[Rfam]
Rfam assigns this 189-nucleotide RNA sequence from Holdemania filiformis to the family "Group II catalytic intron D1-D4-3". The base pairs follow the family's consensus structure. Taxonomically the source falls in Holdemania (Bacteria, Bacillati, Bacillota, Erysipelotrichia).
RNA sequence: AUUAUCGUGAGGUAAUGGCUGAAGGAAGCUGGAUGUUGGGAAAGCCAACGGGCAAAAUCUCGGGCUUACGGACAGAAAUCGAAUAGGAGGCUGCUAGCCUGGACGACCUUGCUAAACAAAGAGAAGUCCAAGUUGCCGAACAUGGCGAAACAGUAAAUUCGGAGGCUGCACGAGAGGAAAGUUAUCACA
Numbered sequence: 001a002u003u004a005u006c007g008u009g010a011g012g013u014a015a016u017g018g019c020u021g022a023a024g025g026a027a028g029c030u031g032g033a034u035g036u037u038g039g040g041a042a043a044g045c046c047a048a049c050g051g052g053c054a055a056a057a058u059c060u061c062g063g064g065c066u067u068a069c070g071g072a073c074a075g076a077a078a079u080c081g082a083a084u085a086g087g088a089g090g091c092u093g094c095u096a097g098c099c100u101g102g103a104c105g106a107c108c109u110u111g112c113u114a115a116a117c118a119a120a121g122a123g124a125a126g127u128c129c130a131a132g133u134u135g136c137c138g139a140a141c142a143u144g145g146c147g148a149a150a151c152a153g154u155a156a157a158u159u160c161g162g163a164g165g166c167u168g169c170a171c172g173a174g175a176g177g178a179a180a181g182u183u184a185u186c187a188c189a
Base pairs, nucleotide, nucleotide: 001016002015003014004013005012006011048185052182053181058175059174060173061172062171063167064166065165066164067163079162080161081160082159083158084157090154091153092152095148097146098145099144101129102128103127104126108121109120110119
It scores 106 bits against the family's covariance model.